This 78-nucleotide RNA from Coleofasciculus sp. FACHB-SPT36 belongs to the Rfam family "CyVA-1 RNA". Rfam's curators write: Cyanobacteria, Acidobacteria (1 example), Verrucomicrobia (1 example). It is annotated as a small RNA. Lineage of the source: Bacteria > Cyanobacteriota > Cyanophyceae > Coleofasciculales > Coleofasciculus. The match comes from Rfam's covariance-model search (47 bits).
RNA sequence: CGACCAUAGCAGGCGUUUUGCUGUUUGUCCUGCGAAUUGCCCCACUUAGGAGAACGGCGUCUAGGCGGCGAGUGGUCA
Numbered sequence: 001c002g003a004c005c006a007u008a009g010c011a012g013g014c015g016u017u018u019u020g021c022u023g024u025u026u027g028u029c030c031u032g033c034g035a036a037u038u039g040c041c042c043c044a045c046u047u048a049g050g051a052g053a054a055c056g057g058c059g060u061c062u063a064g065g066c067g068g069c070g071a072g073u074g075g076u077c078a
Stems, first nucleotide, its partner, number of pairs: 002077005009033004038070004043065001